[Rfam]
RNA sequence: UGUCCGUGGGGAUUCCUGGUAAAGUGAUUUUGGAAGAUUUUGGGCUCAAUCACAUUGCCAGGGAUUUCCCAUGGCUG
Numbered sequence: 001u002g003u004c005c006g007u008g009g010g011g012a013u014u015c016c017u018g019g020u021a022a023a024g025u026g027a028u029u030u031u032g033g034a035a036g037a038u039u040u041u042g043g044g045c046u047c048a049a050u051c052a053c054a055u056u057g058c059c060a061g062g063g064a065u066u067u068c069c070c071a072u073g074g075c076u077g
Stems, first nucleotide, its partner, number of pairs: 001077002004074003009070003012065011024053006